[Rfam]
RNA sequence: AGGCUGGCAUGUUCGGCCUUCCUGCUCUAUAUUGGGUUUGCCGGGUUCGCCCGGCUAUGGCGCUAAACGCUAUGUGGAAUAGGCUUUGCGGACCCGGGGGCGGUACCCGGCGCCUCCACCAUCAACCGGUUCCGGCCGGCGCAUGGGGGCGAAACAGGAUCGACGCGGGCAGUAAAGACAUGGUUUGUGCUCGGCAUGAUACCACCGUUAUCGGGUCAAUCCUCACAAGUGCCAACGACAACGUUGCUCUUGCCGCUGCGGCCUAGCCCGUAAGCGCGGUUCGGGGGGGCACCGGGCAACAGAAGCCCCCCCACU
Numbered sequence: 001a002g003g004c005u006g007g008c009a010u011g012u013u014c015g016g017c018c019u020u021c022c023u024g025c026u027c028u029a030u031a032u033u034g035g036g037u038u039u040g041c042c043g044g045g046u047u048c049g050c051c052c053g054g055c056u057a058u059g060g061c062g063c064u065a066a067a068c069g070c071u072a073u074g075u076g077g078a079a080u081a082g083g084c085u086u087u088g089c090g091g092a093c094c095c096g097g098g099g100g101c102g103g104u105a106c107c108c109g110g111c112g113c114c115u116c117c118a119c120c121a122u123c124a125a126c127c128g129g130u131u132c133c134g135g136c137c138g139g140c141g142c143a144u145g146g147g148g149g150c151g152a153a154a155c156a157g158g159a160u161c162g163a164c165g166c167g168g169g170c171a172g173u174a175a176a177g178a179c180a181u182g183g184u185u186u187g188u189g190c191u192c193g194g195c196a197u198g199a200u201a202c203c204a205c206c207g208u209u210a211u212c213g214g215g216u217c218a219a220u221c222c223u224c225a226c227a228a229g230u231g232c233c234a235a236c237g238a239c240a241a242c243g244u245u246g247c248u249c250u251u252g253c254c255g256c257u258g259c260g261g262c263c264u265a266g267c268c269c270g271u272a273a274g275c276g277c278g279g280u281u282c283g284g285g286g287g288g289g290c291a292c293c294g295g296g297c298a299a300c301a302g303a304a305g306c307c308c309c310c311c312c313a314c315u
Base pairs, nucleotide, nucleotide: 040055041054042053043052044051059191060190061189062188063187069184070183071182072181073180074179075178084169085168086167088166089165090164094110095109096108097107098106111151112150113149114148115147116146117145192207193206194205197218198217199216202214203213277294278293279292280291285311286310287309288308289307
RNA: Alphaproteobacteria transfer-messenger RNA
Organism: Magnetospirillum moscoviense